[Rfam]
RNA: Group II catalytic intron D1-D4-7
RNA sequence: CCUGCCAUUCCCUUGGCAGUAGCCUACCGCCACAUGCGGCCCUGGUAACAGGACGGUGUGAAGCUGGCGGGACAAUGUAACCCAUCCUCAAUAUGAGGUAAACCAAACCCGCGAGGGGGAAGUGUAUCUGCGAGCACAACGCGGAAGGGGGC
Numbered sequence: 001c002c003u004g005c006c007a008u009u010c011c012c013u014u015g016g017c018a019g020u021a022g023c024c025u026a027c028c029g030c031c032a033c034a035u036g037c038g039g040c041c042c043u044g045g046u047a048a049c050a051g052g053a054c055g056g057u058g059u060g061a062a063g064c065u066g067g068c069g070g071g072a073c074a075a076u077g078u079a080a081c082c083c084a085u086c087c088u089c090a091a092u093a094u095g096a097g098g099u100a101a102a103c104c105a106a107a108c109c110c111g112c113g114a115g116g117g118g119g120a121a122g123u124g125u126a127u128c129u130g131c132g133a134g135c136a137c138a139a140c141g142c143g144g145a146a147g148g149g150g151g152c
Base pairs, nucleotide, nucleotide: 002019003018004017005016006015007014028069029068030067031066032065033060034059035058036057037056039054041052042051043050044049086098087097088096089095090094100125102123103122109116110115127145128144129143130142131141132140